Notes
The family of this 61-nucleotide RNA sequence from Nomascus leucogenys is "mir-1285 microRNA precursor family".

RNA sequence: UUGGAGGAUCACUUGAGCCCAGGAGUUCGAGACCGGCCUGGGCAACAAAGUGAGCCCCAUC
Dot-bracket structure: ......(.((((((..(((((((...(((....))))))))))....)))))).)......
The source organism's lineage runs through Eukaryota, Tetrapoda, Boreoeutheria, Haplorrhini and Nomascus.